RNA sequence: GCUAAAUUUAGUGCAGCCUUGUUACUUUUAGUUUUCUCCUUUUGUAUGUAAGGAGUCUUCUUUUAUCUUGGCGGCAGAAACUU
Numbered sequence: 001g002c003u004a005a006a007u008u009u010a011g012u013g014c015a016g017c018c019u020u021g022u023u024a025c026u027u028u029u030a031g032u033u034u035u036c037u038c039c040u041u042u043u044g045u046a047u048g049u050a051a052g053g054a055g056u057c058u059u060c061u062u063u064u065a066u067c068u069u070g071g072c073g074g075c076a077g078a079a080a081c082u083u
Stems, first nucleotide, its partner, number of pairs: 012076003016072003021067001030061002037054005
Dot-bracket structure: ...........(((.(((..(........((.....(((((........))))).....)).....)..))).))).......
A member of the RNA family "Small nucleolar RNA snoR110" from Capsella rubella, 83 nucleotides long. Rfam 15.1 lists 42 matches to the family in 15 species. The family's consensus secondary structure was predicted with WAR. Lineage of the source: Eukaryota > Streptophyta > Brassicaceae > Camelineae > Capsella. It is annotated as an H/ACA-box small nucleolar RNA.